[Rfam]
RNA sequence: CAUCCAUCCCGAGCGGCCGAGAGACCUGGCUCCGAGACGCCGCAGCAACCACCCCACAGUGGGGCAGGUGCUAACGCCAGGGUCGAUGGAGG
Numbered sequence: 001c002a003u004c005c006a007u008c009c010c011g012a013g014c015g016g017c018c019g020a021g022a023g024a025c026c027u028g029g030c031u032c033c034g035a036g037a038c039g040c041c042g043c044a045g046c047a048a049c050c051a052c053c054c055c056a057c058a059g060u061g062g063g064g065c066a067g068g069u070g071c072u073a074a075c076g077c078c079a080g081g082g083u084c085g086a087u088g089g090a091g092g
Stems, first nucleotide, its partner, number of pairs: 001092001003090006013043005021032003026080004044072004049068002052064003076084001
The family of this 92-nucleotide sequence from Herbihabitans rhizosphaerae is "SAM riboswitch aptamer (S box leader)". A search with the family's covariance model found it, with a score of 64 bits. The family's consensus secondary structure is taken from published work. The source organism's lineage runs through Bacteria, Actinomycetota, Pseudonocardiales, Pseudonocardiaceae and Herbihabitans.